The record is a 117-nucleotide RNA sequence from Clostridium saccharobutylicum, which matches "SAM riboswitch aptamer (S box leader)" in Rfam.
RNA sequence: AUCUUAUUAAGAGUGGUGGAGGGACCGGCCCUAUGAAGCCCAGCAACCUGAAAAAAUCUUCAUUUAAAUUUUUUCGUUGGUGCUAAUUCCUGCAGGAGAAAUCCUGAGAAAUGAGAG
Numbered sequence: 001a002u003c004u005u006a007u008u009a010a011g012a013g014u015g016g017u018g019g020a021g022g023g024a025c026c027g028g029c030c031c032u033a034u035g036a037a038g039c040c041c042a043g044c045a046a047c048c049u050g051a052a053a054a055a056a057u058c059u060u061c062a063u064u065u066a067a068a069u070u071u072u073u074u075c076g077u078u079g080g081u082g083c084u085a086a087u088u089c090c091u092g093c094a095g096g097a098g099a100a101a102u103c104c105u106g107a108g109a110a111a112u113g114a115g116a117g
Stems, first nucleotide, its partner, number of pairs: 002116007013041001015040003021031003025092001027090002042084004047080002049076009088109001093106005